[Rfam]
RNA sequence: GGGGCUGUAUUGGUUUUGACAGCACAGGUUACGGUAGGUGUAAGCAUGCAGUGCGUUGUAUCAUUAGCACUUUAAUCUGAAGAUUCAAACUUUAAAUGGCAAUACUCAGUAUGCCAUGGCUGCCUAAUCAGUGAUUAGUUAGUCAUUAGGGCCGCUUGAGCAGGUUGUUCUGUUACCAAGCUCCGCCGCCGACUCAAAAACAAACACAGAAUGCUGCAAUGGAAGGCUGUGACCGUUGCUUAAGACUAUACAGCUAAGCGCAGGAUCGGUUGGUUCGUUUCCUGUUUUGCGCCGACAAAUAAUAAUGAAAUAAGCAUGUAGAAAGCUUAUGGUAAUUGUGUUUGGACGCGGGUUCGAGUCCCGCCAGCUCCACAU
Numbered sequence: 001g002g003g004g005c006u007g008u009a010u011u012g013g014u015u016u017u018g019a020c021a022g023c024a025c026a027g028g029u030u031a032c033g034g035u036a037g038g039u040g041u042a043a044g045c046a047u048g049c050a051g052u053g054c055g056u057u058g059u060a061u062c063a064u065u066a067g068c069a070c071u072u073u074a075a076u077c078u079g080a081a082g083a084u085u086c087a088a089a090c091u092u093u094a095a096a097u098g099g100c101a102a103u104a105c106u107c108a109g110u111a112u113g114c115c116a117u118g119g120c121u122g123c124c125u126a127a128u129c130a131g132u133g134a135u136u137a138g139u140u141a142g143u144c145a146u147u148a149g150g151g152c153c154g155c156u157u158g159a160g161c162a163g164g165u166u167g168u169u170c171u172g173u174u175a176c177c178a179a180g181c182u183c184c185g186c187c188g189c190c191g192a193c194u195c196a197a198a199a200a201c202a203a204a205c206a207c208a209g210a211a212u213g214c215u216g217c218a219a220u221g222g223a224a225g226g227c228u229g230u231g232a233c234c235g236u237u238g239c240u241u242a243a244g245a246c247u248a249u250a251c252a253g254c255u256a257a258g259c260g261c262a263g264g265a266u267c268g269g270u271u272g273g274u275u276c277g278u279u280u281c282c283u284g285u286u287u288u289g290c291g292c293c294g295a296c297a298a299a300u301a302a303u304a305a306u307g308a309a310a311u312a313a314g315c316a317u318g319u320a321g322a323a324a325g326c327u328u329a330u331g332g333u334a335a336u337u338g339u340g341u342u343u344g345g346a347c348g349c350g351g352g353u354u355c356g357a358g359u360c361c362c363g364c365c366a367g368c369u370c371c372a373c374a375u
Stems, first nucleotide, its partner, number of pairs: 001371007020344003023340005029334001032332001034330004040326002045318005050071005057087002060084003116135002119132004151193001153191002156188001161180001164177001166175001168211006216239007225255006258292009268282002274308002278304001348364005
RNA: transfer-messenger RNA
Organism: Panacibacter ginsenosidivorans